The family of this 149-nucleotide RNA from Brassica carinata is "MIR9563 microRNA precursor family".
Rfam 15.1 lists 5,832 matches to the family in 9 species.
Nucleotides: 149
Base pairs, nucleotide, nucleotide: 001149002148003147004146005145006144007143008142009141010140011139012138013137014136015135016134017133018132019131020130021129022128023127024126025125026124027123028122029121030120031119032118033117034116035115036114037113038112039111041109042108043107044106045105046104047103048102049101050100051099052098053097054096055095056094057093058092
Number, partner (000 for none) and nucleotide at each position: 001149g002148g003147a004146a005145u006144a007143u008142a009141a010140g011139a012138a013137a014136c015135c016134g017133u018132c019131u020130u021129u022128u023127a024126a025125c026124u027123u028122u029121u030120a031119a032118c033117u034116a035115a036114a037113a038112a039111a040000a041109c042108u043107a044106a045105g046104a047103a048102c049101c050100g051099g052098c053097u054096c055095u056094u057093a058092a059000a060000u061000a062000u063000u064000c065000c066000g067000c068000u069000a070000a071000g072000a073000g074000c075000a076000u077000g078000a079000u080000u081000a082000a083000u084000g085000g086000g087000g088000g089000u090000u091000c092058u093057u094056a095055g096054g097053a098052g099051c100050c101049g102048g103047u104046u105045c106044u107043u108042a109041g110000u111039u112038u113037u114036u115035u116034u117033a118032g119031u120030u121029a122028a123027a124026a125025g126024u127023u128022a129021a130020g131019a132018g133017a134016c135015g136014g137013u138012u139011u140010c141009u142008u143007a144006u145005a146004u147003u148002c149001c